Overview:
The record is a 310-nucleotide RNA from Tenacibaculum holothuriorum, which matches "Bacterial RNase P class A" in Rfam. The family's RNA type in Rfam is ribozyme. NCBI's taxonomy places the organism under Bacteria, Bacteroidota, Flavobacteriales, Flavobacteriaceae, Tenacibaculum. The match comes from Rfam's covariance-model search (200 bits).
RNA sequence: UAAGCAGACCUUUCUUAUCGACUUAAACUAGAUUUAAGUAGGAAAGUCCGGACACCAUAGAGUAGUAUAGCGGAUAACAUCCGUCCGGUGAAAACCGAGGACAAGUGCAACAGAAAGUAUGUACAGGUAAUGCUGUAGUGAAAUCAGGUAAACUCUAUACGGUGCAAUGCCACGUAUAUUAGAGCUUGAGUGUGCUCGCACGAUUCUAAGGGGUAGGCAGAUUGAAAUUGAAAGUAAUUUCAAUUCUAGAUAAAUGAUAAGACUUCAAUUUAUUGAAGAACAGAAUCCGGCUUACUGGUCUGCUUUUUUC
Numbered sequence: 001u002a003a004g005c006a007g008a009c010c011u012u013u014c015u016u017a018u019c020g021a022c023u024u025a026a027a028c029u030a031g032a033u034u035u036a037a038g039u040a041g042g043a044a045a046g047u048c049c050g051g052a053c054a055c056c057a058u059a060g061a062g063u064a065g066u067a068u069a070g071c072g073g074a075u076a077a078c079a080u081c082c083g084u085c086c087g088g089u090g091a092a093a094a095c096c097g098a099g100g101a102c103a104a105g106u107g108c109a110a111c112a113g114a115a116a117g118u119a120u121g122u123a124c125a126g127g128u129a130a131u132g133c134u135g136u137a138g139u140g141a142a143a144u145c146a147g148g149u150a151a152a153c154u155c156u157a158u159a160c161g162g163u164g165c166a167a168u169g170c171c172a173c174g175u176a177u178a179u180u181a182g183a184g185c186u187u188g189a190g191u192g193u194g195c196u197c198g199c200a201c202g203a204u205u206c207u208a209a210g211g212g213g214u215a216g217g218c219a220g221a222u223u224g225a226a227a228u229u230g231a232a233a234g235u236a237a238u239u240u241c242a243a244u245u246c247u248a249g250a251u252a253a254a255u256g257a258u259a260a261g262a263c264u265u266c267a268a269u270u271u272a273u274u275g276a277a278g279a280a281c282a283g284a285a286u287c288c289g290g291c292u293u294a295c296u297g298g299u300c301u302g303c304u305u306u307u308u309u310c
Base pairs, nucleotide, nucleotide: 002305003304004303005302006301007300008299009298010297013262014261015260016259017258018257019256021039022038023037024036025035026034027033044293045292046291048290049289050288051287052286053164054163055162056161060197061196062195063194065160066159067158068157069156070084071083072082073081074080085099086097087096088095089094100155101154105153106152107149108148122137123136124135125134126133168219169218170217171216179209180208181207182206183205190201191200192199193198226245227244228243229242230241231240232239233238
Dot-bracket structure: .(((((((((..(((((((.(((((((.....)))))))....[[[.[[[[[((((...[[[[.((((((((((.....)))))(((((....)))).)((...((((.............(((((......)))))..........))..)))))))))))))...((((.......(((((......((((]]]]))))...)))))......))))......((((((((....))))))))..........))))))).......................]]]]]]]]...))))))))).....